[Rfam]
RNA sequence: CGUCCCGACGCGGGAGAGUUCUGUGGCCGCCAGCCAUGGACGCCGAAGGAGCAAUACCUCUCCAUCAACCUCUCAGGCCCCCGGACCGCGCCGGAGCC
Numbered sequence: 001c002g003u004c005c006c007g008a009c010g011c012g013g014g015a016g017a018g019u020u021c022u023g024u025g026g027c028c029g030c031c032a033g034c035c036a037u038g039g040a041c042g043c044c045g046a047a048g049g050a051g052c053a054a055u056a057c058c059u060c061u062c063c064a065u066c067a068a069c070c071u072c073u074c075a076g077g078c079c080c081c082c083g084g085a086c087c088g089c090g091c092c093g094g095a096g097c098c
Stems, first nucleotide, its partner, number of pairs: 006093002009090005020040006042078003045074002049072003
Shown here is a 98-nucleotide RNA sequence from Mycolicibacterium llatzerense, a member of the family "Glycine riboswitch aptamer". NCBI's taxonomy places the organism under Bacteria, Bacillati, Actinomycetota, Mycobacteriales, Mycobacterium (subgen. Mycolicibacterium).